Source information
The family of this 83-nucleotide sequence from Bombyx mori is "mir-2807 microRNA precursor family". The base pairs follow the family's consensus structure, which was predicted with RNAalifold. On this family, see Liu et al., BMC Genomics 2010: "MicroRNAs of Bombyx mori identified by Solexa sequencing". The source organism's lineage runs through Eukaryota, Mandibulata, Eumetabola, Panorpida and Bombyx. The match comes from Rfam's covariance-model search (65 bits).
RNA sequence: UUAACUCAUAUUUGUAUGGAAUGGGAUAGUUUGCCUAUGUCUGCCGCUAGGGGCGCUGUUUCAAUUGCAUACAAAUUUAGUUA
Numbered sequence: 001u002u003a004a005c006u007c008a009u010a011u012u013u014g015u016a017u018g019g020a021a022u023g024g025g026a027u028a029g030u031u032u033g034c035c036u037a038u039g040u041c042u043g044c045c046g047c048u049a050g051g052g053g054c055g056c057u058g059u060u061u062c063a064a065u066u067g068c069a070u071a072c073a074a075a076u077u078u079a080g081u082u083a
Stems, first nucleotide, its partner, number of pairs: 008077001010076007018068001020066003024062003029057001034052003039047002